[Rfam]
RNA: Guanidine-I riboswitch aptamer
Organism: Methylopila sp. Yamaguchi
Nucleotides: 109
Base pairs, nucleotide, nucleotide: 007059008058009057010056011055012054015049016048020046021045022043023041024040025039026038027037028036060082061081062080063079064078065077066076067075084104086107090102091101092100
Number, partner (000 for none) and nucleotide at each position: 001000g002000u003000g004000c005000a006000g007059u008058g009057c010056g011055u012054c013000u014000a015049g016048g017000g018000u019000u020046c021045c022043g023041g024040c025039c026038g027037u028036c029000c030000g031000a032000u033000c034000a035000g036028g037027g038026c039025g040024g041023c042000g043022c044000u045021g046020g047000u048016c049015c050000g051000a052000g053000a054012g055011a056010c057009g058008c059007a060082c061081u062080c063079u064078c065077c066076g067075c068000u069000g070000a071000g072000c073000a074000u075067g076066c077065g078064g079063g080062g081061a082060g083000a084104c085000a086107c087000g088000g089000c090102g091101g092100g093000g094000c095000a096000a097000a098000a099000u100092c101091c102090c103000g104084g105000g106000a107086g108000g109000u